MIR1878 microRNA precursor family: a 99-nucleotide RNA sequence from Panicum virgatum.
Lineage of the source: Eukaryota > Mesangiospermae > Petrosaviidae > commelinids > Panicum sect. Hiantes.
The match comes from Rfam's covariance-model search (76 bits).
Its family is annotated with miRNA-mediated post-transcriptional gene silencing and RISC complex in the Gene Ontology.
RNA sequence: ACUAUUGCAAACUUAAUCUGGAGACUACAAAAGAAAGUCUGCAUGUAAGAACAUGCUCGAUGUAAAUUUGUAGUGUUCAGAUUGAAUUCAUAAUUGUUG
Numbered sequence: 001a002c003u004a005u006u007g008c009a010a011a012c013u014u015a016a017u018c019u020g021g022a023g024a025c026u027a028c029a030a031a032a033g034a035a036a037g038u039c040u041g042c043a044u045g046u047a048a049g050a051a052c053a054u055g056c057u058c059g060a061u062g063u064a065a066a067u068u069u070g071u072a073g074u075g076u077u078c079a080g081a082u083u084g085a086a087u088u089c090a091u092a093a094u095u096g097u098u099g
Stems, first nucleotide, its partner, number of pairs: 001097002004094001010088002013085010024074008039059001042055005